[Rfam]
RNA sequence: GAGUGCACUUGAUUGGCGAGUCUAACCCGUGAACCGGGGAAGGCGUAGGGAAACCGAUACGGCCGCAGCACAUUCGUGCGAGGGCCACCGUGUUCAAGCGCGGGGAGUCAAUUGGGUGCGACCCGAAACCAGGCGAUCUAUACACAGGCAGGGUGAAGCGUGGCGAAAGCCACGUGGAGGCCCGUUAGAGUUGGUAUUCUACAAUAUCCUCUCGUGAUCUGUGCAUAGGGGUGAAAGGCCCAUCGAGCCUGGCAACAGCUGGUU
Number, nucleotide and partner (000 for none) at each position: 001g000002a000003g000004u000005g119006c118007a117008c116009u115010u114011g113012a112013u111014u110015g109016g108017c107018g000019a000020g044021u043022c042023u041024a000025a000026c038027c037028c036029g035030u000031g000032a000033a000034c000035c029036g028037g027038g026039g000040a000041a023042g022043g021044c020045g000046u000047a000048g055049g054050g000051a000052a000053a000054c049055c048056g000057a000058u000059a000060c000061g086062g085063c084064c083065g000066c000067a000068g079069c078070a077071c076072a000073u000074u000075c000076g071077u070078g069079c068080g000081a000082g000083g064084g063085c062086c061087a000088c000089c102090g101091u100092g099093u000094u000095c000096a000097a000098g000099c092100g091101c090102g089103g000104g000105g000106a000107g017108u016109c015110a014111a013112u012113u011114g010115g009116g008117u007118g006119c005120g000121a000122c262123c261124c000125g259126a000127a000128a000129c252130c251131a250132g249133g248134c247135g000136a000137u000138c228139u227140a226141u225142a000143c223144a222145c221146a220147g219148g218149c216150a000151g183152g182153g181154u180155g000156a000157a000158g175159c174160g173161u172162g171163g170164c169165g000166a000167a000168a000169g164170c163171c162172a161173c160174g159175u158176g000177g000178a000179g000180g154181c153182c152183c151184g000185u000186u000187a000188g213189a212190g211191u000192u000193g209194g208195u000196a207197u206198u000199c000200u000201a000202c000203a000204a000205u000206a197207u196208c194209c193210u000211c190212u189213c188214g000215u000216g149217a000218u148219c147220u146221g145222u144223g143224c000225a141226u140227a139228g138229g000230g240231g239232u238233g000234a000235a000236a000237g000238g232239c231240c230241c000242a000243u000244c000245g000246a000247g134248c133249c132250u131251g130252g129253c000254a000255a000256c000257a000258g000259c125260u000261g123262g122263u000264u000
Overview: The record is a 264-nucleotide part of an RNA from Halorubrum lacusprofundi, which matches "Archaeal large subunit ribosomal RNA" in Rfam. Rfam's curators put it in the seed alignment. Pairs were carried over by alignment from the consensus structure, which is taken from published work. Rfam links the family to the GO terms ribosome and structural constituent of ribosome.